[Rfam]
RNA sequence: GGGCUGGCUUUAGCCCAGCGGUUCCUUCCAGUCUGGCUUCCCAAUGACCCUGGCCGAUUGGUCCGGUGGUUGGAGACCCGCGGGCGCACUCCAGUCCUUUU
Numbered sequence: 001g002g003g004c005u006g007g008c009u010u011u012a013g014c015c016c017a018g019c020g021g022u023u024c025c026u027u028c029c030a031g032u033c034u035g036g037c038u039u040c041c042c043a044a045u046g047a048c049c050c051u052g053g054c055c056g057a058u059u060g061g062u063c064c065g066g067u068g069g070u071u072g073g074a075g076a077c078c079c080g081c082g083g084g085c086g087c088a089c090u091c092c093a094g095u096c097c098u099u100u101u
Base pairs, nucleotide, nucleotide: 002096003095004094005093006092007091013085014084015083016082018081019080020079021078026075027074028073029072030071